[Rfam]
RNA sequence: CAGCAGUGCAUUGUAGUUGCAUUGCAUGUAAUUUUAUAAGUGCAGUGUCUCUUCAGUGCAACUCUG
Numbered sequence: 001c002a003g004c005a006g007u008g009c010a011u012u013g014u015a016g017u018u019g020c021a022u023u024g025c026a027u028g029u030a031a032u033u034u035u036a037u038a039a040g041u042g043c044a045g046u047g048u049c050u051c052u053u054c055a056g057u058g059c060a061a062c063u064c065u066g
Base pairs, nucleotide, nucleotide: 001066002065003064006062007060008059009058010057011056012055013054015052016051019048021046022045023044024043025042026041027040

This 66-nucleotide RNA sequence from Zophobas morio belongs to the Rfam family "mir-33 microRNA precursor family". Rfam 15.1 lists 1,467 matches to the family in 815 species. A search with the family's covariance model found it, with a score of 67 bits. Rfam links the family to the GO terms gene silencing by miRNA and RISC complex.